About this RNA:
The family of this 386-nucleotide RNA from Staphylococcus sp. HGB0015 is "Bacterial RNase P class B". The literature on the family includes a 1998 paper in Annu Rev Biochem by Frank and Pace, "Ribonuclease P: unity and diversity in a tRNA processing ribozyme". It scores 326 bits against the family's covariance model.
RNA sequence: UAUUUCGUGUAAUCGCUAUAUGGUUUACAUAUAGAGGAAAGUCCAUGCUCACACAGUCUGAGAUGACUGUAGUGUUCGUGCUUGAUGAAACAAUAAGUCAAGGCAAUAUCAAUGAUAUUGACGGCAAUGAACUAACCUAAGUCAUUAGAUAUGGUUAUAUUAGUUUGAAAGUGCCACAGUGACGUAGCUUUAUUAGAAAUAAUAAAGGUGGAACGCGGUAAACCCCUCGAGUGAGCAAUCCAAAUUUGGUAGGAGCACUUGUCUAACGAAAUUCAACGUAUAGACGAGGAAAGGUAAUAUCCCUUUCAGACAGAUGAUUACAACUGGCGUACCAGUGCUGCUAGUGCACGUAAUGAGUACAAUAGUACAGAACAUGGCUUAUAGAA
Numbered sequence: 001u002a003u004u005u006c007g008u009g010u011a012a013u014c015g016c017u018a019u020a021u022g023g024u025u026u027a028c029a030u031a032u033a034g035a036g037g038a039a040a041g042u043c044c045a046u047g048c049u050c051a052c053a054c055a056g057u058c059u060g061a062g063a064u065g066a067c068u069g070u071a072g073u074g075u076u077c078g079u080g081c082u083u084g085a086u087g088a089a090a091c092a093a094u095a096a097g098u099c100a101a102g103g104c105a106a107u108a109u110c111a112a113u114g115a116u117a118u119u120g121a122c123g124g125c126a127a128u129g130a131a132c133u134a135a136c137c138u139a140a141g142u143c144a145u146u147a148g149a150u151a152u153g154g155u156u157a158u159a160u161u162a163g164u165u166u167g168a169a170a171g172u173g174c175c176a177c178a179g180u181g182a183c184g185u186a187g188c189u190u191u192a193u194u195a196g197a198a199a200u201a202a203u204a205a206a207g208g209u210g211g212a213a214c215g216c217g218g219u220a221a222a223c224c225c226c227u228c229g230a231g232u233g234a235g236c237a238a239u240c241c242a243a244a245u246u247u248g249g250u251a252g253g254a255g256c257a258c259u260u261g262u263c264u265a266a267c268g269a270a271a272u273u274c275a276a277c278g279u280a281u282a283g284a285c286g287a288g289g290a291a292a293g294g295u296a297a298u299a300u301c302c303c304u305u306u307c308a309g310a311c312a313g314a315u316g317a318u319u320a321c322a323a324c325u326g327g328c329g330u331a332c333c334a335g336u337g338c339u340g341c342u343a344g345u346g347c348a349c350g351u352a353a354u355g356a357g358u359a360c361a362a363u364a365g366u367a368c369a370g371a372a373c374a375u376g377g378c379u380u381a382u383a384g385a386a
Stems, first nucleotide, its partner, number of pairs: 004386003007382001008322007016034006039380003043377005048235005053070006076230003080226001081102006103122001104120006123225002126165003134156004141150003171223002173219003188207008239254003258288007289307006324365003329360004